[Rfam]
RNA sequence: GUUAGAGUAGGUGAUUGCGCGUGAAGUGCUAGUUGGAUAGGAUGUUGCCACUAGACGAAAAAAUCUUUUGGAUUUUGCGAUGCAUAUACCGCUUCCGCUAAC
Numbered sequence: 001g002u003u004a005g006a007g008u009a010g011g012u013g014a015u016u017g018c019g020c021g022u023g024a025a026g027u028g029c030u031a032g033u034u035g036g037a038u039a040g041g042a043u044g045u046u047g048c049c050a051c052u053a054g055a056c057g058a059a060a061a062a063a064u065c066u067u068u069u070g071g072a073u074u075u076u077g078c079g080a081u082g083c084a085u086a087u088a089c090c091g092c093u094u095c096c097g098c099u100a101a102c
Stems, first nucleotide, its partner, number of pairs: 001102005010090004016084004020079003026056002029054005035049002040096003044092001060076006
Dot-bracket structure: (((((....((((..(((((((...((.(((((.((...[[[.[...)))))))))...((((((.....))))))))).))))..)))).].]]].)))))
A member of the RNA family "THF (Tetrahydrofolate) riboswitch aptamer" from Clostridium tetani, 102 nucleotides long. Lineage of the source: Bacteria > Bacillati > Eubacteriales > Clostridiaceae > Clostridium tetani. Rfam's curators write: Tetrahydrofolate (THF) riboswitch was first reported for Ames et al. as an RNA motif in 5' untranslated (5'-UTR)regions of folate transport and biosynthesis genes in Firmicutes genomes.